A member of the RNA family "FGF-2 internal ribosome entry site (IRES)" from Rhinolophus ferrumequinum, 488 nucleotides long.
[Rfam]
RNA sequence: CUGCGGCCAGAGCGCCGGGCCCCAACAGCCCUGAGCGGGCUGGGGGCGGCGCGCUGGGAGGGCGGAGAGCGGCGCGUGGGGGGUGGGUGGGUGGGUGUCGGGGUGGAGAUGUAGAAGAUGUGACGCCGUGGUCCGGCAGUGCCAGACCUGCGGACGCGGUGCCCGCGGCUGCAAUCGGAUCCCGGGCGCUGCAGCGUCGGGAGGCAGCCCUCUCGAGAGUGGCGACCGCGGAGACUCCGAGCCCCAAACCCCCGCUCCCGGGCCGCCCGGCUCCCUGCGCUCCUGGGCCCGCGGAGAGGCCAGGGCCGAGCGGCGCAAGGCUGGGGGCCAGCGGCCGCGGCCGCGCGCCGCCGGGUGGGCGGCUGGGGGGCCGGGGCCGGGGCCGCGUCCCGGAGCAGGUCGGAGGCCGGGGCCGAGGCCGGGGAGCAGCGGCUCCCCGCGCGGCUGCAGGAGCGCGGGGAUCCCGGCAGGGUCCCGGUGGGGCCAUG
Numbered sequence: 001c002u003g004c005g006g007c008c009a010g011a012g013c014g015c016c017g018g019g020c021c022c023c024a025a026c027a028g029c030c031c032u033g034a035g036c037g038g039g040c041u042g043g044g045g046g047c048g049g050c051g052c053g054c055u056g057g058g059a060g061g062g063c064g065g066a067g068a069g070c071g072g073c074g075c076g077u078g079g080g081g082g083g084u085g086g087g088u089g090g091g092u093g094g095g096u097g098u099c100g101g102g103g104u105g106g107a108g109a110u111g112u113a114g115a116a117g118a119u120g121u122g123a124c125g126c127c128g129u130g131g132u133c134c135g136g137c138a139g140u141g142c143c144a145g146a147c148c149u150g151c152g153g154a155c156g157c158g159g160u161g162c163c164c165g166c167g168g169c170u171g172c173a174a175u176c177g178g179a180u181c182c183c184g185g186g187c188g189c190u191g192c193a194g195c196g197u198c199g200g201g202a203g204g205c206a207g208c209c210c211u212c213u214c215g216a217g218a219g220u221g222g223c224g225a226c227c228g229c230g231g232a233g234a235c236u237c238c239g240a241g242c243c244c245c246a247a248a249c250c251c252c253c254g255c256u257c258c259c260g261g262g263c264c265g266c267c268c269g270g271c272u273c274c275c276u277g278c279g280c281u282c283c284u285g286g287g288c289c290c291g292c293g294g295a296g297a298g299g300c301c302a303g304g305g306c307c308g309a310g311c312g313g314c315g316c317a318a319g320g321c322u323g324g325g326g327g328c329c330a331g332c333g334g335c336c337g338c339g340g341c342c343g344c345g346c347g348c349c350g351c352c353g354g355g356u357g358g359g360c361g362g363c364u365g366g367g368g369g370g371c372c373g374g375g376g377c378c379g380g381g382g383c384c385g386c387g388u389c390c391c392g393g394a395g396c397a398g399g400u401c402g403g404a405g406g407c408c409g410g411g412g413c414c415g416a417g418g419c420c421g422g423g424g425a426g427c428a429g430c431g432g433c434u435c436c437c438c439g440c441g442c443g444g445c446u447g448c449a450g451g452a453g454c455g456c457g458g459g460g461a462u463c464c465c466g467g468c469a470g471g472g473u474c475c476c477g478g479u480g481g482g483g484c485c486a487u488g
Stems, first nucleotide, its partner, number of pairs: 018372006031358003045352010070254003074250001077246004092240001094238002097235001132178002136166002139162005183228003187224006199214006260316001262314003265292002269289003389399002392396001409476006420470001422468001439456004457465003

This family represents the fibroblast growth factor 2 (FGF-2) internal ribosome entry site (IRES). When expressed the FGF-2 protein plays a pivotal role in cell proliferation, differentiation and survival as well as being involved in wound-healing. It has been found that FGF-2 IRES activity is strictly controlled and highly tissue specific. It is thought that translational IRES dependent activation of FGF-2 plays a vital role in embryogenesis and in the adult brain.